[Rfam]
RNA sequence: AUUUCUAAUUCGCUGAAACCAUCAGGUGCGGGGGAACCAUUCAAGGGAUCGAUGUGUUGAUCCAUGGGGUGAAUCCUUUUAAGGUAGGGCUACUCAUUGGCCCGAAUCCGUCAGCUAACCUCGUAAGCGUUAGAUUGAGAAGGA
Numbered sequence: 001a002u003u004u005c006u007a008a009u010u011c012g013c014u015g016a017a018a019c020c021a022u023c024a025g026g027u028g029c030g031g032g033g034g035a036a037c038c039a040u041u042c043a044a045g046g047g048a049u050c051g052a053u054g055u056g057u058u059g060a061u062c063c064a065u066g067g068g069g070u071g072a073a074u075c076c077u078u079u080u081a082a083g084g085u086a087g088g089g090c091u092a093c094u095c096a097u098u099g100g101c102c103c104g105a106a107u108c109c110g111u112c113a114g115c116u117a118a119c120c121u122c123g124u125a126a127g128c129g130u131u132a133g134a135u136u137g138a139g140a141a142g143g144a
Stems, first nucleotide, its partner, number of pairs: 011129004018027003028124006038066002067109003075084003087103004
The family of this 144-nucleotide RNA from Falsibacillus pallidus is "c-di-AMP riboswitch aptamer (ydaO/yuaA leader)". It scores 104 bits against the family's covariance model. The pairing is the family consensus, mapped onto this sequence.